Source information
The record is a 207-nucleotide RNA sequence, which matches "raiA RNA" in Rfam. It is annotated as a riboswitch. The family's consensus secondary structure is taken from published work. It is one of the family's seed sequences.
RNA sequence: UAAAGUUAGGUCUGUGGAUGAAAGUCGAUGCCAGUCGCAGGCGAAACGAUCCACGUAAGUUAAACAAAGAGUUAAUGAGCAUGGUGCGGUAUAGAAGUAAGUCCUGCCAGUAGAAAUACUGAGAGUGUUAGUAGUGAGAGGUUAAUUCCGGGUAGCAAAAGCUCCAGCAGGCGAGUGUGGGGGCAAAAUCCAGGUCAGCUAACUUUA
Numbered sequence: 001u002a003a004a005g006u007u008a009g010g011u012c013u014g015u016g017g018a019u020g021a022a023a024g025u026c027g028a029u030g031c032c033a034g035u036c037g038c039a040g041g042c043g044a045a046a047c048g049a050u051c052c053a054c055g056u057a058a059g060u061u062a063a064a065c066a067a068a069g070a071g072u073u074a075a076u077g078a079g080c081a082u083g084g085u086g087c088g089g090u091a092u093a094g095a096a097g098u099a100a101g102u103c104c105u106g107c108c109a110g111u112a113g114a115a116a117u118a119c120u121g122a123g124a125g126u127g128u129u130a131g132u133a134g135u136g137a138g139a140g141g142u143u144a145a146u147u148c149c150g151g152g153u154a155g156c157a158a159a160a161g162c163u164c165c166a167g168c169a170g171g172c173g174a175g176u177g178u179g180g181g182g183g184c185a186a187a188a189u190c191c192a193g194g195u196c197a198g199c200u201a202a203c204u205u206u207a
Stems, first nucleotide, its partner, number of pairs: 001207009012198003015192005028178003031041001034090006050084002058076001060074001062072001082185001103171005108121005125164001127162002134156002140149002